Annotation: The family of this 134-nucleotide RNA sequence from Indicator maculatus is "Small nucleolar RNA SNORA55". NCBI's taxonomy places the organism under Eukaryota, Teleostomi, Euteleostomi, Sauria, Indicator. The family's RNA type in Rfam is H/ACA-box small nucleolar RNA. ACA55 is a member of the H/ACA class of snoRNA that guide the sites of modification of uridines to pseudouridines. Its family is annotated with nucleolus and RNA processing in the Gene Ontology.

RNA sequence: GCAUCUGAAUCUUUGCCACUCCUUGCAAAUACAGUGCUGGAUUGGAGAUACAGGAUGCAACAGGAAAGCAGAGGAAAUCCAGAUAAGCUCCCUUUCACCAUGCUGGACCUUAUCUCUACACCUUUGCAACAUUU
Number, nucleotide and partner (000 for none) at each position: 001g058002c057003a056004u055005c054006u000007g000008a000009a000010u000011c000012u000013u048014u047015g000016c045017c044018a043019c000020u000021c040022c039023u000024u000025g000026c000027a000028a000029a000030u000031a000032c000033a000034g000035u000036g000037c000038u000039g022040g021041a000042u000043u018044g017045g016046a000047g014048a013049u000050a000051c000052a000053g000054g005055a004056u003057g002058c001059a000060a000061c000062a000063g000064g000065a000066a000067a000068g127069c126070a125071g124072a123073g122074g000075a000076a000077a000078u000079c000080c000081a115082g114083a113084u112085a111086a110087g109088c000089u000090c000091c000092c000093u000094u000095u106096c105097a104098c000099c000100a000101u000102g000103c000104u097105g096106g095107a000108c000109c087110u086111u085112a084113u083114c082115u081116c000117u000118a000119c000120a000121c000122c073123u072124u071125u070126g069127c068128a000129a000130c000131a000132u000133u000134u000